The record is a 133-nucleotide RNA sequence from Chlorocebus sabaeus, which matches "Small nucleolar RNA SNORD22" in Rfam. Rfam links the family to the GO terms RNA processing and nucleolus.

[Rfam]
RNA sequence: UCCCGAGUAGCUGGGAUUACAGGCAUGCACCAUCAUACCUGGCCGAUAUACCCGGAGCCUUUAAAGGUGAACCCACUGGGACUGGCUGGGGGAAAAGAGGAAGAUUUUUUCCAGAAGGAACUGUCUAAGGGAU
Numbered sequence: 001u002c003c004c005g006a007g008u009a010g011c012u013g014g015g016a017u018u019a020c021a022g023g024c025a026u027g028c029a030c031c032a033u034c035a036u037a038c039c040u041g042g043c044c045g046a047u048a049u050a051c052c053c054g055g056a057g058c059c060u061u062u063a064a065a066g067g068u069g070a071a072c073c074c075a076c077u078g079g080g081a082c083u084g085g086c087u088g089g090g091g092g093a094a095a096a097g098a099g100g101a102a103g104a105u106u107u108u109u110u111c112c113a114g115a116a117g118g119a120a121c122u123g124u125c126u127a128a129g130g131g132a133u
Base pairs, nucleotide, nucleotide: 001132002131003130004129
The literature on the family includes a 1996 paper in Nature by Tycowski et al., "A mammalian gene with introns instead of exons generating stable RNA products".